[Rfam]
RNA sequence: CUGUAGUGCAUUGUUGUUGCAUUGCAUGUCAUUUUCUUUGUGCAAUGUUUCUUCAGUGCAGUAUGG
Numbered sequence: 001c002u003g004u005a006g007u008g009c010a011u012u013g014u015u016g017u018u019g020c021a022u023u024g025c026a027u028g029u030c031a032u033u034u035u036c037u038u039u040g041u042g043c044a045a046u047g048u049u050u051c052u053u054c055a056g057u058g059c060a061g062u063a064u065g066g
Base pairs, nucleotide, nucleotide: 001066002065003064004063006062007060008059009058010057011056012055013054016051019048021046022045023044024043025042026041027040